Shown here is a 99-nucleotide sequence, a member of the family "c-di-GMP-II-GAG riboswitch aptamer". Its family is annotated with regulation of gene expression and cyclic-di-GMP binding in the Gene Ontology.
RNA sequence: AGUGAGCGGCGAGGCAGUGACACCGGGGGGCGCAACGGUCACCCCGUCCACCUGGACGGGUCCCCUGGUCGAGCCAGUGGUGAGACCGACGCCCGCACG
Numbered sequence: 001a002g003u004g005a006g007c008g009g010c011g012a013g014g015c016a017g018u019g020a021c022a023c024c025g026g027g028g029g030g031c032g033c034a035a036c037g038g039u040c041a042c043c044c045c046g047u048c049c050a051c052c053u054g055g056a057c058g059g060g061u062c063c064c065c066u067g068g069u070c071g072a073g074c075c076a077g078u079g080g081u082g083a084g085a086c087c088g089a090c091g092c093c094c095g096c097a098c099g
Base pairs, nucleotide, nucleotide: 002098003097004096006094008093009092010091011090013075014074015073022069023068024067025066026065027064028063029062037087038086039083040082041081042080043079